[Rfam]
RNA: Alphaproteobacteria transfer-messenger RNA
RNA sequence: CCCCUUGAAGCCGUCGGCAUUUGCGCCUAAGUAGGGCCUGUCGGGCUUGCUCGACUAUGGACAUAAACGCGCUCGUAAUACGCGGAUCGGACCCGGGGGCGGUACCCGGCGUCUCCACCAUAACACCGCUGCAUCCGGCCUUCAUUUGAGGCGGUUGUGGUUUGGAUCAUGGGGACGAAAUAGGAUCGACGGACGUCUAAAGGGGUUUGCUUUGUUUCGGUGAGUUACCACCGUUAUCGGUACACUUAAGCUAGUUGCAAAUGACAACAAAGCUCCGAUGGCUCUCGCAGCGUAAGCUGUGCGAAAUAUCGAAACCUAAGUCCUUGGGUUUAGCGACCUAAGGCGGGGUUCGCAGGUACCUGGCAACAGAAACCUGCACU
Numbered sequence: 001c002c003c004c005u006u007g008a009a010g011c012c013g014u015c016g017g018c019a020u021u022u023g024c025g026c027c028u029a030a031g032u033a034g035g036g037c038c039u040g041u042c043g044g045g046c047u048u049g050c051u052c053g054a055c056u057a058u059g060g061a062c063a064u065a066a067a068c069g070c071g072c073u074c075g076u077a078a079u080a081c082g083c084g085g086a087u088c089g090g091a092c093c094c095g096g097g098g099g100c101g102g103u104a105c106c107c108g109g110c111g112u113c114u115c116c117a118c119c120a121u122a123a124c125a126c127c128g129c130u131g132c133a134u135c136c137g138g139c140c141u142u143c144a145u146u147u148g149a150g151g152c153g154g155u156u157g158u159g160g161u162u163u164g165g166a167u168c169a170u171g172g173g174g175a176c177g178a179a180a181u182a183g184g185a186u187c188g189a190c191g192g193a194c195g196u197c198u199a200a201a202g203g204g205g206u207u208u209g210c211u212u213u214g215u216u217u218c219g220g221u222g223a224g225u226u227a228c229c230a231c232c233g234u235u236a237u238c239g240g241u242a243c244a245c246u247u248a249a250g251c252u253a254g255u256u257g258c259a260a261a262u263g264a265c266a267a268c269a270a271a272g273c274u275c276c277g278a279u280g281g282c283u284c285u286c287g288c289a290g291c292g293u294a295a296g297c298u299g300u301g302c303g304a305a306a307u308a309u310c311g312a313a314a315c316c317u318a319a320g321u322c323c324u325u326g327g328g329u330u331u332a333g334c335g336a337c338c339u340a341a342g343g344c345g346g347g348g349u350u351c352g353c354a355g356g357u358a359c360c361u362g363g364c365a366a367c368a369g370a371a372a373c374c375u376g377c378a379c380u
Stems, first nucleotide, its partner, number of pairs: 040055005059217005069210002071206004083195002087192003093109005110177007218233004224243002227241003346361004352377006